Rfam assigns this 131-nucleotide RNA from Streptomyces sp. DSM 15324 to the family "Streptomyces RNA 5676". Identified by deep sequencing of transcriptome at the end of exponential growth phase. Appears longer on northern blot than sequencing transcript. A reference for the family is Vockenhuber et al. (2011), "Deep sequencing-based identification of small non-coding RNAs in Streptomyces coelicolor", RNA Biol. The pairing is the family consensus, mapped onto this sequence. The family's RNA type in Rfam is small RNA. The organism belongs to Streptomyces, within Bacteria.

RNA sequence: AGAUGAGAGAUACACCCGCCCGCAGGUGACUGCGGGCGGACUCCAGGCCGGGGCCUCCCCAGCUUCGACCUGGUCGUGCCCUGGCGCACACAACAGGAGCCUCAGGGCUCCGCAUCUCCUCACCGAUCGGA
Numbered sequence: 001a002g003a004u005g006a007g008a009g010a011u012a013c014a015c016c017c018g019c020c021c022g023c024a025g026g027u028g029a030c031u032g033c034g035g036g037c038g039g040a041c042u043c044c045a046g047g048c049c050g051g052g053g054c055c056u057c058c059c060c061a062g063c064u065u066c067g068a069c070c071u072g073g074u075c076g077u078g079c080c081c082u083g084g085c086g087c088a089c090a091c092a093a094c095a096g097g098a099g100c101c102u103c104a105g106g107g108c109u110c111c112g113c114a115u116c117u118c119c120u121c122a123c124c125g126a127u128c129g130g131a
Stems, first nucleotide, its partner, number of pairs: 004122004009118002016039010043073005049067006076089004096111006123130002